[Rfam]
Shown here is a 128-nucleotide RNA sequence from Microcella frigidaquae, a member of the family "Glycine riboswitch aptamer".
RNA sequence: GCCACUCUGAAAAGCAGGGCACCGACCGCGCGUCGGCUCGGCCCUCGCCCACGGUGAAAACCCCGACCUCCUGCCACGAGCAGCGCGGACGCGGCGAAACUCUCAGGCACGAUGACAGAGGGGGAGUU
Numbered sequence: 001g002c003c004a005c006u007c008u009g010a011a012a013a014g015c016a017g018g019g020c021a022c023c024g025a026c027c028g029c030g031c032g033u034c035g036g037c038u039c040g041g042c043c044c045u046c047g048c049c050c051a052c053g054g055u056g057a058a059a060a061c062c063c064c065g066a067c068c069u070c071c072u073g074c075c076a077c078g079a080g081c082a083g084c085g086c087g088g089a090c091g092c093g094g095c096g097a098a099a100c101u102c103u104c105a106g107g108c109a110c111g112a113u114g115a116c117a118g119a120g121g122g123g124g125a126g127u128u
Base pairs, nucleotide, nucleotide: 002123003122005120006119007118008117009116016045017044018043019042047108048107049106051103054102056100061094
A search with the family's covariance model found it, with a score of 35 bits. Its family is annotated with glycine biosynthetic process in the Gene Ontology.